[Rfam]
RNA: c-di-GMP-I riboswitch aptamer
Organism: Pseudoalteromonas denitrificans
RNA sequence: AGUAAGAAAAGGCAAACUUAGUGAAAAUUAAGGACGCAAAGCUAUCGGUCUAAGGGCCCAUACUCGUAUAUUGAGCCUAUGAUUGCGGUGCUGCCAAC
Numbered sequence: 001a002g003u004a005a006g007a008a009a010a011g012g013c014a015a016a017c018u019u020a021g022u023g024a025a026a027a028u029u030a031a032g033g034a035c036g037c038a039a040a041g042c043u044a045u046c047g048g049u050c051u052a053a054g055g056g057c058c059c060a061u062a063c064u065c066g067u068a069u070a071u072u073g074a075g076c077c078u079a080u081g082a083u084u085g086c087g088g089u090g091c092u093g094c095c096a097a098c
Base pairs, nucleotide, nucleotide: 012037013036017032018031019030020029021028022027040092041091042090045088046087047086048083049082050081055077056076057075